About this RNA
Plastid-atpF group II-D1 intron: a 53-nucleotide sequence from Rhododendron simsii. Pairs were carried over by alignment from the consensus structure, which was predicted with LocARNA. Lineage of the source: Eukaryota > Viridiplantae > Streptophyta > Magnoliopsida > Rhododendron. Plastid atpF is a non-coding RNA (ncRNA) recognised in plastids. Rfam 15.1 lists 1,372 matches to the family in 227 species. The literature on the family includes a 2023 paper in Plant Commun by Richter et al., "Retrograde signaling in plants: A critical review focusing on the GUN pathway and beyond".
[Rfam]
RNA sequence: AAUAAUUUUUUUGAUAUAGAACACUCGUAUUGAUAAAAUGAUUUGAACUAUUU
Numbered sequence: 001a002a003u004a005a006u007u008u009u010u011u012u013g014a015u016a017u018a019g020a021a022c023a024c025u026c027g028u029a030u031u032g033a034u035a036a037a038a039u040g041a042u043u044u045g046a047a048c049u050a051u052u053u
Base pairs, nucleotide, nucleotide: 011033012032013031014030015029016028017027